[Rfam]
RNA: Streptomyces-metH RNA
RNA sequence: CUUGUCCGCCCCGUGGACGCCUUGUCCACCCGGGCCCCGACCUGACCUAGUCUUGCGACGUGCGCCCUCGUGGUACGUGGCCACGGGUGGCGCAAAGCCGACAGCCGUCGCACUCCAGGGAGCCCCUAUAUG
Numbered sequence: 001c002u003u004g005u006c007c008g009c010c011c012c013g014u015g016g017a018c019g020c021c022u023u024g025u026c027c028a029c030c031c032g033g034g035c036c037c038c039g040a041c042c043u044g045a046c047c048u049a050g051u052c053u054u055g056c057g058a059c060g061u062g063c064g065c066c067c068u069c070g071u072g073g074u075a076c077g078u079g080g081c082c083a084c085g086g087g088u089g090g091c092g093c094a095a096a097g098c099c100g101a102c103a104g105c106c107g108u109c110g111c112a113c114u115c116c117a118g119g120g121a122g123c124c125c126c127u128a129u130a131u132g
Stems, first nucleotide, its partner, number of pairs: 061094004066089001068087002097111002100109003
Dot-bracket structure: ............................................................((((.(.((................)).).))))..((.(((....))))).....................